[Rfam]
RNA: Small Cajal body specific RNA 8
Organism: Lingula anatina
RNA sequence: UGGGAGACUUGAUACACACCUGUGCUACUAAGAUGGCUUCAGAUGUCACUAUUUCUCCCUAGACUAUUUUGCUCUCUGAUGACCACAGGACCUCAAGUCACACACUGUGGACAGAUACGGGGCAGACACUG
Numbered sequence: 001u002g003g004g005a006g007a008c009u010u011g012a013u014a015c016a017c018a019c020c021u022g023u024g025c026u027a028c029u030a031a032g033a034u035g036g037c038u039u040c041a042g043a044u045g046u047c048a049c050u051a052u053u054u055c056u057c058c059c060u061a062g063a064c065u066a067u068u069u070u071g072c073u074c075u076c077u078g079a080u081g082a083c084c085a086c087a088g089g090a091c092c093u094c095a096a097g098u099c100a101c102a103c104a105c106u107g108u109g110g111a112c113a114g115a116u117a118c119g120g121g122g123c124a125g126a127c128a129c130u131g
Stems, first nucleotide, its partner, number of pairs: 002059006016046003022039001024037002069125007083110003088105001